[Rfam]
Nucleotides: 173
Stems, first nucleotide, its partner, number of pairs: 001016002005012002028173001030171003036164001042158005047152005063147006074139003078135004083130001087115004093108004
Number, partner (000 for none) and nucleotide at each position: 001016g002015u003000g004000a005012g006011g007000g008000u009000g010000a011006c012005c013000g014000a015002g016001c017000g018000u019000g020000g021000g022000g023000a024000g025000g026000a027000a028173g029000c030171g031170u032169g033000g034000a035000g036164c037000g038000u039000a040000a041000a042158c043157c044156g045155u046154g047152a048151g049150c050149c051148g052000a053000g054000g055000u056000a057000c058000a059000c060000g061000a062000a063147c064146c065145g066144c067143a068142u069000c070000g071000g072000a073000g074139g075138c076137g077000g078135c079134g080133c081132c082000g083130g084000c085000c086000a087115g088114g089113g090112c091000g092000a093108g094107c095106a096105g097000g098000c099000a100000u101000g102000u103000g104000a105096c106095u107094g108093c109000g110000a111000a112090g113089c114088u115087c116000u117000u118000g119000u120000g121000g122000c123000c124000a125000a126000g127000g128000g129000c130083c131000a132081g133080g134079c135078g136000a137076c138075g139074u140000a141000a142068a143067u144066g145065c146064g147063g148051c149050g150049g151048u152047u153000g154046u155045g156044c157043g158042g159000a160000g161000a162000a163000g164036g165000a166000u167000c168000g169032c170031g171030u172000u173028c
Shown here is a 173-nucleotide RNA, a member of the family "Group II catalytic intron D1-D4-3". Rfam's curators write: Group II introns are found in rRNA, tRNA and mRNA of organelles in fungi, plants and protists, and also in mRNA in bacteria. The base pairs follow the family's consensus structure.